Notes:
A member of the RNA family "Small nucleolar RNA Z266" from Zingiber officinale, 96 nucleotides long. The family's RNA type in Rfam is C/D-box small nucleolar RNA. Rfam links the family to the GO terms RNA processing and nucleolus. Lineage of the source: Eukaryota > Viridiplantae > Petrosaviidae > Zingiberales > Zingiber. It scores 76 bits against the family's covariance model.

Nucleotides: 096
Stems, first nucleotide, its partner, number of pairs: 001096004006092006
Number, partner (000 for none) and nucleotide at each position: 001096g002095g003094u004093g005000u006092g007091g008090c009089a010088g011087g012000g013000g014000u015000g016000a017000u018000g019000a020000a021000u022000c023000a024000a025000u026000u027000a028000g029000a030000u031000g032000u033000g034000u035000g036000a037000a038000u039000g040000a041000a042000a043000g044000u045000u046000u047000g048000u049000c050000u051000a052000a053000u054000g055000a056000g057000c058000u059000a060000a061000a062000c063000u064000u065000u066000u067000g068000a069000g070000g071000c072000a073000u074000a075000a076000u077000u078000a079000a080000u081000u082000u083000c084000u085000g086000a087011c088010c089009u090008g091007c092006c093004u094003g095002c096001u